[Rfam]
The record is a 75-nucleotide sequence from Cricetulus griseus, which matches "mir-147 microRNA precursor family" in Rfam. Its family is annotated with RISC complex and miRNA-mediated post-transcriptional gene silencing in the Gene Ontology. The organism belongs to Cricetulus, within Eukaryota.

RNA sequence: UAUGAAUCUAGUGGAAACACUUCCGCACAAACUAGAUUUUGAUACCAGUGUGCGGAAAUGCUUCUGCUACAUUUU
Numbered sequence: 001u002a003u004g005a006a007u008c009u010a011g012u013g014g015a016a017a018c019a020c021u022u023c024c025g026c027a028c029a030a031a032c033u034a035g036a037u038u039u040u041g042a043u044a045c046c047a048g049u050g051u052g053c054g055g056a057a058a059u060g061c062u063u064c065u066g067c068u069a070c071a072u073u074u075u
Base pairs, nucleotide, nucleotide: 004074005073006072007071009069010068011067012066013065014064015063016062018060019059021057022056023055024054025053026052027051028050029049032048033047